[Rfam]
RNA sequence: GUCGAUCAAACCCCACGUUUGAAAACGGGGGCUUGAAAAACUCAUAGCUGACCCGCCUCAGCCCUUGCGCUUUGGCACACGCUACGCGAACGACUUCGCUCAGGGCUACGUUUAAAUCGCCAUCACACCCUUGGAUACGCAGCCAGUCCUCUGCUCUGUGGCUCAAGGUUAAACAGUUGUAUCGAGAUUAAGACAGUGCUUUGAGCGUCAAAAACGAUUUAAACAUUGGCUAGGCUAACUUAAC
Dot-bracket structure: (((.(.(.(.((((...((....)).)).)).((....))....).).))))..(((..(((((......................................)))))..((((((((((.....((..(...(((([...[[[[.))))...)....)).(((((((((...((.(((.((.......)).))).)))))))))))........))))))))))...)))..]]]]...]....
The family of this 244-nucleotide RNA sequence from Moorena producens is "HNH endonuclease-associated RNA and ORF (HEARO) RNA".
NCBI's taxonomy places the organism under Bacteria, Bacillati, Cyanophyceae, Moorena, Moorena producens.